[Rfam]
RNA sequence: AGCGGAUGGAAGCUUACUGUAGAGGUCACGUGCUGGGUGCUCGUCACUCUUCCAAUCACCUCGGGGAAGGUCUGAGACAAGAGCCAAUCGCUGUCCUCGCAGGACAUCAUCUGAACAGAUGAGCGAGCGCACAGGCAUCAUGGGUGUCACAGCGCGGUGUUCUCGCACGAGACGUUGAUAUACGCGCAGUUUCAGCAAAUCAACUGAUGCGAUCCCCGCUGACUUGGAAACACUCGCGGCUGGCGAAUGAGUUCAAUGUGUAAGCUAGUACAAGAUGCUAGAACCCAAUUCAGACUACUCUCCCUCCGCU
Numbered sequence: 001a002g003c004g005g006a007u008g009g010a011a012g013c014u015u016a017c018u019g020u021a022g023a024g025g026u027c028a029c030g031u032g033c034u035g036g037g038u039g040c041u042c043g044u045c046a047c048u049c050u051u052c053c054a055a056u057c058a059c060c061u062c063g064g065g066g067a068a069g070g071u072c073u074g075a076g077a078c079a080a081g082a083g084c085c086a087a088u089c090g091c092u093g094u095c096c097u098c099g100c101a102g103g104a105c106a107u108c109a110u111c112u113g114a115a116c117a118g119a120u121g122a123g124c125g126a127g128c129g130c131a132c133a134g135g136c137a138u139c140a141u142g143g144g145u146g147u148c149a150c151a152g153c154g155c156g157g158u159g160u161u162c163u164c165g166c167a168c169g170a171g172a173c174g175u176u177g178a179u180a181u182a183c184g185c186g187c188a189g190u191u192u193c194a195g196c197a198a199a200u201c202a203a204c205u206g207a208u209g210c211g212a213u214c215c216c217c218g219c220u221g222a223c224u225u226g227g228a229a230a231c232a233c234u235c236g237c238g239g240c241u242g243g244c245g246a247a248u249g250a251g252u253u254c255a256a257u258g259u260g261u262a263a264g265c266u267a268g269u270a271c272a273a274g275a276u277g278c279u280a281g282a283a284c285c286c287a288a289u290u291c292a293g294a295c296u297a298c299u300c301u302c303c304c305u306c307c308g309c310u
Stems, first nucleotide, its partner, number of pairs: 001310004008303003013264005022062004035049005072293005082241004092106005107122006123237005129231001143223001145221001265281006
RNA: Nuclear RNase P
Organism: Sinocyclocheilus rhinocerous